[Rfam]
Shown here is a 71-nucleotide sequence from Flavobacterium rivulicola, a member of the family "Flavo-1 RNA". The base pairs follow the family's consensus structure, which is taken from published work.

RNA sequence: AAUUAGCCCCGAUUGGAGCGGCGCCUGCCUGCCGGCAGGCAGGCGAAGUAUAGCGGAAAGCGGGAACAUGG
Dot-bracket structure: ........(((.((...((...((.((((((((....))))))))..))...))...)).)))........